The record is a 71-nucleotide RNA sequence from Podargus strigoides, which matches "Small nucleolar RNA SNORD58" in Rfam. From the family's description: snoRNA U58 is found in introns 1, 3 and 6 of the ribosomal protein RPL17 gene in humans. For this family Rfam cites "Purified box C/D snoRNPs are able to reproduce site-specific 2'-O-methylation of target RNA in vitro" (Galardi et al., Mol Cell Biol, 2002). A search with the family's covariance model found it, with a score of 67 bits. By type it is a C/D-box small nucleolar RNA.
RNA sequence: UUGCUGUGAGGACUAUCUUAGGACACCUUUGGAACACCCAUGAAAAAAAUCGCAAGUUAUUUCUGAGCAGC
Numbered sequence: 001u002u003g004c005u006g007u008g009a010g011g012a013c014u015a016u017c018u019u020a021g022g023a024c025a026c027c028u029u030u031g032g033a034a035c036a037c038c039c040a041u042g043a044a045a046a047a048a049a050u051c052g053c054a055a056g057u058u059a060u061u062u063c064u065g066a067g068c069a070g071c
Base pairs, nucleotide, nucleotide: 001070002069003068004067